[Rfam]
RNA sequence: UGGAGAAGGGGAGCACGUGCAAAGAGGGGAAAGCCAUGGAGAAUUUGCACGUGCCCUGCUUCUCCAAC
Numbered sequence: 001u002g003g004a005g006a007a008g009g010g011g012a013g014c015a016c017g018u019g020c021a022a023a024g025a026g027g028g029g030a031a032a033g034c035c036a037u038g039g040a041g042a043a044u045u046u047g048c049a050c051g052u053g054c055c056c057u058g059c060u061u062c063u064c065c066a067a068c
Base pairs, nucleotide, nucleotide: 001066002065003064004063005062006061007060008059010057011056013054014053015052016051017050018049019048020047021046022045023044028035029034
Description: Shown here is a 68-nucleotide RNA sequence from Carica papaya, a member of the family "MIR164 microRNA precursor family". On this family, see Mica et al., BMC Genomics 2009: "High throughput approaches reveal splicing of primary microRNA transcripts and tissue specific expression of mature microRNAs in Vitis vinifera". The family has 2 seed sequences and 201 matches in Rfam 15.1. It is one of the family's seed sequences.